[Rfam]
RNA sequence: GCAUCGGUUGAGGGUUAUACCGCAGUGACUCAGUGUCAUACAUCCAAGGAGAGCGACGGCAGAUGUAUGGACGGUGC
Numbered sequence: 001g002c003a004u005c006g007g008u009u010g011a012g013g014g015u016u017a018u019a020c021c022g023c024a025g026u027g028a029c030u031c032a033g034u035g036u037c038a039u040a041c042a043u044c045c046a047a048g049g050a051g052a053g054c055g056a057c058g059g060c061a062g063a064u065g066u067a068u069g070g071a072c073g074g075u076g077c
Base pairs, nucleotide, nucleotide: 001077002076003075004074005073006072009032010031011030012029037069038068039067040066041065042064043063044062